[Rfam]
RNA sequence: UAAAAGGGUUGUUUCGCCUGGUGCGACACGGGGAAAACCUCGUGGUGAAUGGAAAUCAAGACAUUUGCUCAACACAAUUUUUAGAUUGAGAGAAUGGCAGACUCUUCUGUCGCUGUUCUCUU
Numbered sequence: 001u002a003a004a005a006g007g008g009u010u011g012u013u014u015c016g017c018c019u020g021g022u023g024c025g026a027c028a029c030g031g032g033g034a035a036a037a038c039c040u041c042g043u044g045g046u047g048a049a050u051g052g053a054a055a056u057c058a059a060g061a062c063a064u065u066u067g068c069u070c071a072a073c074a075c076a077a078u079u080u081u082u083a084g085a086u087u088g089a090g091a092g093a094a095u096g097g098c099a100g101a102c103u104c105u106u107c108u109g110u111c112g113c114u115g116u117u118c119u120c121u122u
Stems, first nucleotide, its partner, number of pairs: 008073004014026004027044007045068007090120009100111003
Shown here is a 122-nucleotide RNA from Planoprotostelium fungivorum, a member of the family "U11 spliceosomal RNA". The organism belongs to Planoprotostelium, within Eukaryota.